[Rfam]
RNA sequence: UAGCAACCGGGAAAUGGUGUCUUCCUUUUAAAAACCGCAAUUGCUGAUGGCGCCUAUGAUAAA
Number, nucleotide and partner (000 for none) at each position: 001u000002a000003g000004c000005a000006a000007c000008c000009g000010g025011g024012a023013a022014a000015u000016g054017g053018u052019g051020u050021c049022u013023u012024c011025c010026u000027u000028u000029u000030a000031a000032a000033a000034a000035c000036c000037g044038c043039a000040a000041u000042u000043g038044c037045u000046g000047a000048u000049g021050g020051c019052g018053c017054c016055u000056a000057u000058g000059a000060u000061a000062a000063a000

A member of the RNA family "Fluoride riboswitch aptamer (crcB RNA motif)" from Pedobacter duraquae, 63 nucleotides long. It scores 45 bits against the family's covariance model. The family has 289 seed sequences and 2,293 matches in Rfam 15.1.